Overview:
The record is a 97-nucleotide sequence from Diceros bicornis, which matches "mir-544 microRNA precursor family" in Rfam. Its family is annotated with RISC complex and miRNA-mediated post-transcriptional gene silencing in the Gene Ontology. The family has 16 seed sequences and 10,750 matches in Rfam 15.1. Pairs were carried over by alignment from the consensus structure, which was predicted with RNAalifold. A reference for the family is Chiang et al. (2010), "Mammalian microRNAs: experimental evaluation of novel and previously annotated genes", Genes Dev.
Nucleotides: 097
Base pairs, nucleotide, nucleotide: 003090004089009084010083011082015079016078017077018076019075020074021072022071023070025068026067027066028065029064031062032061033060
Number, partner (000 for none) and nucleotide at each position: 001000a002000u003090c004089a005000c006000c007000u008000g009084g010083g011082g012000a013000u014000c015079u016078u017077g018076u019075u020074a021072a022071a023070a024000u025068g026067u027066a028065g029064a030000c031062u032061c033060u034000g035000g036000u037000u038000c039000a040000a041000u042000a043000g044000c045000u046000c047000u048000g049000g050000g051000u052000c053000a054000g055000g056000c057000c058000u059000g060033a061032g062031a063000u064029u065028c066027u067026g068025c069000a070023u071022u072021u073000c074020u075019g076018a077017c078016a079015a080000a081000u082011u083010c084009c085000c086000u087000g088000a089004u090003g091000a092000u093000g094000c095000u096000g097000a